[Rfam]
RNA: Group II catalytic intron D1-D4-6
RNA sequence: AGAGUCCUACAGGAAGGGAGUAGCGAACCACCUGGCCUCGAGUCUUGCGGGGCGCGUCGCGAGGCGCGGACCGAAGCGUAGACAGAGGGAUCAGUGGGCUGGGUAUUGAGCUUCGAGAAUGACCCUCUGGGAUGCCGACCCUGUGGACAGAAGGGGAAGGCCAUGCCGGAGCGGGCGCAAAUCGCGAGUCCGUCUCCGGAUCCCACGUAGUCGCAGACCC
Dot-bracket structure: .........((((...((..[.[[...)).)))).((((..(((((((((..((((((....))))))..)))...)).)))).))))...................(.(((.((............(((((((((..((((.........))))...)))....((((.((((((.......]].]))))))..)))))))))))).))))........